[Rfam]
Nucleotides: 077
Base pairs, nucleotide, nucleotide: 001072003070004069005068006067007066008065022042024040026038027037028036053064054063055062056061
Number, partner (000 for none) and nucleotide at each position: 001072a002000c003070a004069a005068g006067a007066a008065g009000u010000g011000u012000u013000g014000u015000g016000u017000c018000c019000a020000a021000c022042a023000a024040c025000c026038g027037a028036u029000u030000u031000c032000a033000u034000a035000a036028a037027u038026u039000u040024g041000c042022u043000u044000u045000c046000c047000g048000a049000g050000u051000a052000g053064c054063c055062c056061c057000g058000c059000a060000a061056g062055g063054g064053g065008c066007u067006u068005u069004u070003u071000u072001u073000a074000u075000c076000u077000g
Description:
The family of this 77-nucleotide RNA from Pasteurellaceae bacterium RH1A is "Aggregatibacter sRNA 20". A reference for the family is Oogai et al. (2017), "Small RNA repertoires and their intraspecies variation in Aggregatibacter actinomycetemcomitans", DNA Res. NCBI's taxonomy places the organism under Bacteria, Pseudomonadati, Pseudomonadota, Gammaproteobacteria, Pasteurellaceae. The base pairs follow the family's consensus structure. It is annotated as a small RNA. The match comes from Rfam's covariance-model search (58 bits). Validated by RT-PCR and Northern blot.